[Rfam]
RNA: Small nucleolar RNA SNORD34
Organism: Cisticola juncidis
Nucleotides: 070
Stems, first nucleotide, its partner, number of pairs: 001069001003067004
Number, partner (000 for none) and nucleotide at each position: 001069g002000g003067c004066g005065u006064c007000g008000a009000u010000g011000a012000u013000g014000u015000u016000u017000g018000u019000u020000u021000u022000a023000c024000c025000u026000a027000c028000a029000u030000u031000g032000u033000u034000u035000g036000a037000c038000u039000c040000c041000u042000c043000c044000u045000g046000a047000g048000a049000a050000a051000a052000a053000c054000c055000c056000a057000a058000a059000c060000c061000u062000g063000a064006g065005a066004c067003g068000c069001c070000c